The family of this 103-nucleotide RNA sequence from uncultured archaeon A07HR60 is "L4-Archaeoglobi ribosomal protein leades". By type it is a cis-regulatory leader. On this family, see Eckert and Weinberg, BMC Microbiol 2020: "Discovery of 20 novel ribosomal leader candidates in bacteria and archaea". The match comes from Rfam's covariance-model search (61 bits).

[Rfam]
RNA sequence: CUGAUGAUCGCGUCCGGGUCAAUUGCGCCCUCGCGCAACACCCGAUCUCCUUGCUCGUGCCCGACGGCCUGUCGGUCCGAGAGGGAGAGCGCGUCACACUCAG
Numbered sequence: 001c002u003g004a005u006g007a008u009c010g011c012g013u014c015c016g017g018g019u020c021a022a023u024u025g026c027g028c029c030c031u032c033g034c035g036c037a038a039c040a041c042c043c044g045a046u047c048u049c050c051u052u053g054c055u056c057g058u059g060c061c062c063g064a065c066g067g068c069c070u071g072u073c074g075g076u077c078c079g080a081g082a083g084g085g086a087g088a089g090c091g092c093g094u095c096a097c098a099c100u101c102a103g
Stems, first nucleotide, its partner, number of pairs: 001103004009093005015044004023038005046088005052082001055079001